[Rfam]
A member of the RNA family "Betaproteobacteria toxic small RNA" from Noviherbaspirillum saxi, 66 nucleotides long. About the family: Overexpression in amino aid rich medium attenuates growth, suggesting role in repressing amino acid intake and metabolism. A reference for the family is Kimelman et al. (2012), "A vast collection of microbial genes that are toxic to bacteria", Genome Res. NCBI's taxonomy places the organism under Bacteria, Pseudomonadati, Pseudomonadota, Betaproteobacteria, Noviherbaspirillum.

RNA sequence: UGUCUCCUCCAACUCUCCUUGAAUUGGAUUCAACCCGCAAGCUGCAAAGCCUGCGGGUUUUUUUUC
Numbered sequence: 001u002g003u004c005u006c007c008u009c010c011a012a013c014u015c016u017c018c019u020u021g022a023a024u025u026g027g028a029u030u031c032a033a034c035c036c037g038c039a040a041g042c043u044g045c046a047a048a049g050c051c052u053g054c055g056g057g058u059u060u061u062u063u064u065u066c
Base pairs, nucleotide, nucleotide: 008028009027010026011025012024014022015021032059033058034057035056036055037054038053039052